[Rfam]
RNA sequence: UUGGCGAAACCCGAAAAGCCAAAAAUAGAGUAGGGU
Numbered sequence: 001u002u003g004g005c006g007a008a009a010c011c012c013g014a015a016a017a018g019c020c021a022a023a024a025a026u027a028g029a030g031u032a033g034g035g036u
Stems, first nucleotide, its partner, number of pairs: 002021004010035003
RNA: DUF805b RNA